The family of this 85-nucleotide RNA sequence is "skipping-rope RNA". It is annotated as a small RNA.
[Rfam]
RNA sequence: AUCCCUCGAGGUGGUAAAUUUCGUUGCAACCACGCACCUUCGCGGUCAAAAAGAGAUGCAGGAGAGGCGACGCCUGCCGAGGGAU
Numbered sequence: 001a002u003c004c005c006u007c008g009a010g011g012u013g014g015u016a017a018a019u020u021u022c023g024u025u026g027c028a029a030c031c032a033c034g035c036a037c038c039u040u041c042g043c044g045g046u047c048a049a050a051a052a053g054a055g056a057u058g059c060a061g062g063a064g065a066g067g068c069g070a071c072g073c074c075u076g077c078c079g080a081g082g083g084a085u
Base pairs, nucleotide, nucleotide: 001085002084003083004082005081006080007079008078011033012032013031014030015029023071024070025069026068027067035053036046037045038044058077059076060075061074062073